[Rfam]
Notes: The record is a 97-nucleotide RNA from Propionibacterium cyclohexanicum, which matches "Bacterial small signal recognition particle RNA" in Rfam. On this family, see Rosenblad et al., Nucleic Acids Res 2003: "SRPDB: Signal Recognition Particle Database". The family is grouped with related families in Rfam's "SRP clan". Lineage of the source: Bacteria > Actinomycetota > Actinomycetes > Propionibacteriaceae > Propionibacterium. The signal recognition particle (SRP) is a universally conserved ribonucleoprotein involved in the co-translational targeting of proteins to membranes.
RNA sequence: CCAGGUCCUCCGCGCGGCGGUACCUCGCCCAAUUCCCCCAGGGUCGGAAGGCAGCAAGGGUAAGUGAGCUCUGCUGGGUGCGCGGGGGGCCGCCUUG
Numbered sequence: 001c002c003a004g005g006u007c008c009u010c011c012g013c014g015c016g017g018c019g020g021u022a023c024c025u026c027g028c029c030c031a032a033u034u035c036c037c038c039c040a041g042g043g044u045c046g047g048a049a050g051g052c053a054g055c056a057a058g059g060g061u062a063a064g065u066g067a068g069c070u071c072u073g074c075u076g077g078g079u080g081c082g083c084g085g086g087g088g089g090c091c092g093c094c095u096u097g
Stems, first nucleotide, its partner, number of pairs: 004091011015078001018076005024068005035060003043052003